[Rfam]
RNA sequence: GUCACGGCUGCCUCAGAUUCGCUUGGUGCAGGUCGGGAACGCUUUGUUCCGGCCGCGGACGAACCAGAUCCCGCCUUGCACCAACUGAAUCGGAGGCGGACAGCGACC
Numbered sequence: 001g002u003c004a005c006g007g008c009u010g011c012c013u014c015a016g017a018u019u020c021g022c023u024u025g026g027u028g029c030a031g032g033u034c035g036g037g038a039a040c041g042c043u044u045u046g047u048u049c050c051g052g053c054c055g056c057g058g059a060c061g062a063a064c065c066a067g068a069u070c071c072c073g074c075c076u077u078g079c080a081c082c083a084a085c086u087g088a089a090u091c092g093g094a095g096g097c098g099g100a101c102a103g104c105g106a107c108c
Stems, first nucleotide, its partner, number of pairs: 013094002017090004023084010034073005040067001
Dot-bracket structure: ............((..((((..((((((((((.(((((.(..........................).))))).))))))))))..))))..))..............
MIR168 microRNA precursor family: a 108-nucleotide sequence from Ensete ventricosum. The literature on the family includes a 2002 paper in Genes Dev by Reinhart et al., "MicroRNAs in plants". NCBI's taxonomy places the organism under Eukaryota, Liliopsida, commelinids, Zingiberales, Ensete.